[Rfam]
The family of this 238-nucleotide RNA sequence from Laceyella tengchongensis is "T-box leader".
On this family, see Grundy et al., RNA 2000: "tRNA determinants for transcription antitermination of the Bacillus subtilis tyrS gene".
NCBI's taxonomy places the organism under Bacteria, Bacillati, Bacillota, Thermoactinomycetaceae, Laceyella.
The match comes from Rfam's covariance-model search (123 bits).
About the family: Uncharged tRNA acts as the effector for transcription antitermination of genes in the T-box leader family.

RNA sequence: UGAAAAGCGAUGACAGAGAAGAGUAAGCAGUGCAUCCUUUCAGGGAGGGAACACCAUGACUGGAAGUGUUCCUAAGGAACUGGCUGCUGAAGUUCGCUCUGGAGCUGUCCCCUGAACUGACGUGAACGUGAACGCGAGUAGGGGGAACCGGUUUGACCGUUAUCUCUGUAAGUGGAAAAGAAGGAGAAGACUGCCUUCUUUUCAAAAAGGGUGGUACCGCGAAUCUCUCGUCCCUUUG
Numbered sequence: 001u002g003a004a005a006a007g008c009g010a011u012g013a014c015a016g017a018g019a020a021g022a023g024u025a026a027g028c029a030g031u032g033c034a035u036c037c038u039u040u041c042a043g044g045g046a047g048g049g050a051a052c053a054c055c056a057u058g059a060c061u062g063g064a065a066g067u068g069u070u071c072c073u074a075a076g077g078a079a080c081u082g083g084c085u086g087c088u089g090a091a092g093u094u095c096g097c098u099c100u101g102g103a104g105c106u107g108u109c110c111c112c113u114g115a116a117c118u119g120a121c122g123u124g125a126a127c128g129u130g131a132a133c134g135c136g137a138g139u140a141g142g143g144g145g146a147a148c149c150g151g152u153u154u155g156a157c158c159g160u161u162a163u164c165u166c167u168g169u170a171a172g173u174g175g176a177a178a179a180g181a182a183g184g185a186g187a188a189g190a191c192u193g194c195c196u197u198c199u200u201u202u203c204a205a206a207a208a209g210g211g212u213g214g215u216a217c218c219g220c221g222a223a224u225c226u227c228u229c230g231u232c233c234c235u236u237u238g
Stems, first nucleotide, its partner, number of pairs: 007105002015100004026088006036077003047073008108146006149159003175203010208235004219231004